FuFi-1 RNA: a 268-nucleotide RNA sequence.
[Rfam]
RNA sequence: UCCAUACGCUAUAUGGGGCAAAAUAAUUACAUUUUAGCAGAACUCAAACUGCUUAAGUUAUGGGGUAUUCGAAGAAACUAUUAUGUCGCAUAUAUAGUUCCACUUGUUUACAUUUUAAUUCCUAUAUAUUCGGUAACAAUUAAUUAUCCUCAAAACAAUAUUGGACUUACAAUCUAAUUAUUGUUUUGUUGAUAGCAAGUGGAUGCAGAAUAUUGUGGUGAACAAAUUUGAGCGGAGCUGUCAUCAUUGCGACUGUUGACAGCUUUUG
Numbered sequence: 001u002c003c004a005u006a007c008g009c010u011a012u013a014u015g016g017g018g019c020a021a022a023a024u025a026a027u028u029a030c031a032u033u034u035u036a037g038c039a040g041a042a043c044u045c046a047a048a049c050u051g052c053u054u055a056a057g058u059u060a061u062g063g064g065g066u067a068u069u070c071g072a073a074g075a076a077a078c079u080a081u082u083a084u085g086u087c088g089c090a091u092a093u094a095u096a097g098u099u100c101c102a103c104u105u106g107u108u109u110a111c112a113u114u115u116u117a118a119u120u121c122c123u124a125u126a127u128a129u130u131c132g133g134u135a136a137c138a139a140u141u142a143a144u145u146a147u148c149c150u151c152a153a154a155a156c157a158a159u160a161u162u163g164g165a166c167u168u169a170c171a172a173u174c175u176a177a178u179u180a181u182u183g184u185u186u187u188g189u190u191g192a193u194a195g196c197a198a199g200u201g202g203a204u205g206c207a208g209a210a211u212a213u214u215g216u217g218g219u220g221a222a223c224a225a226a227u228u229u230g231a232g233c234g235g236a237g238c239u240g241u242c243a244u245c246a247u248u249g250c251g252a253c254u255g256u257u258g259a260c261a262g263c264u265u266u267u268g
Stems, first nucleotide, its partner, number of pairs: 001064006036053005043232005065213006077098005083093002085253006099203010235265009245255002